[Rfam]
Nucleotides: 076
Base pairs, nucleotide, nucleotide: 002074003073004072005071006070007069010066011065012064016061017060018059019058021056022055023054024053025052026051027050028049029048030047
Number, partner (000 for none) and nucleotide at each position: 001000c002074u003073a004072u005071a006070u007069g008000u009000a010066c011065c012064c013000u014000g015000u016061a017060g018059a019058u020000c021056c022055g023054a024053a025052u026051u027050u028049g029048u030047g031000u032000u033000a034000a035000g036000a037000a038000g039000a040000u041000u042000g043000a044000u045000g046000u047030c048029a049028c050027a051026a052025a053024u054023u055022c056021g057000u058019a059018u060017c061016u062000a063000g064012g065011g066010g067000a068000a069007u070006a071005u072004g073003u074002a075000g076000u
A member of the RNA family "mir-10 microRNA precursor family" from Microcaecilia unicolor, 76 nucleotides long. Pairs were carried over by alignment from the consensus structure, which was predicted with PFOLD. On this family, see Lee and Ambros, Science 2001: "An extensive class of small RNAs in Caenorhabditis elegans". It scores 76 bits against the family's covariance model.